The record is a 113-nucleotide RNA sequence from Lentivirus humimdef1, which matches "HIV pol-1 stem loop" in Rfam. For this family Rfam cites "Evidence of a novel RNA secondary structure in the coding region of HIV-1 pol gene" (Wang et al., RNA, 2008). The base pairs follow the family's consensus structure, which is taken from published work. Rfam classes the family as a cis-regulatory element. The family has 29 seed sequences and 34 matches in Rfam 15.1.
[Rfam]
RNA sequence: AAAGGUACAGUAUUAGUAGGACCUACACCUGUCAACAUAAUUGGAAGAAAUCUGUUGACUCAGAUUGGUUGCACUUUAAAUUUUCCCAUUAGUCCUAUUGAAACUGUACCAGU
Number, nucleotide and partner (000 for none) at each position: 001a000002a000003a000004g110005g109006u108007a107008c106009a105010g104011u103012a000013u101014u100015a099016g098017u097018a096019g095020g094021a093022c092023c000024u000025a000026c000027a000028c000029c000030u000031g059032u058033c057034a056035a055036c054037a053038u000039a051040a000041u000042u000043g000044g000045a000046a000047g000048a000049a000050a000051u039052c000053u037054g036055u035056u034057g033058a032059c031060u000061c000062a000063g090064a089065u088066u000067g086068g085069u000070u000071g000072c000073a000074c000075u000076u000077u000078a000079a000080a000081u000082u000083u000084u000085c068086c067087c000088a065089u064090u063091a000092g022093u021094c020095c019096u018097a017098u016099u015100g014101a013102a000103a011104c010105u009106g008107u007108a006109c005110c004111a000112g000113u000